RNA: MIR7504 microRNA precursor family
RNA sequence: AACGAGAGAAUGACAAAUCAAAUUUUUUCUCCUGAUUUUCAGCUUUUUCGUCUGGACAAAAUUCAAAUCAAACUAAAAACACUAAAAAUCAGGAAGAAAAAUCUAAUUUGUGAUUCUCCUAUU
Numbered sequence: 001a002a003c004g005a006g007a008g009a010a011u012g013a014c015a016a017a018u019c020a021a022a023u024u025u026u027u028u029c030u031c032c033u034g035a036u037u038u039u040c041a042g043c044u045u046u047u048u049c050g051u052c053u054g055g056a057c058a059a060a061a062u063u064c065a066a067a068u069c070a071a072a073c074u075a076a077a078a079a080c081a082c083u084a085a086a087a088a089u090c091a092g093g094a095a096g097a098a099a100a101a102u103c104u105a106a107u108u109u110g111u112g113a114u115u116c117u118c119c120u121a122u123u
Stems, first nucleotide, its partner, number of pairs: 001123002004120001006118006013111006020104001022102006030094010041083002045079004
Dot-bracket structure: ((.(.((((((.((((((.(.((((((..((((((((((.((..((((...........................))))..)).))))))))))..)))))).).)))))).)))))).).))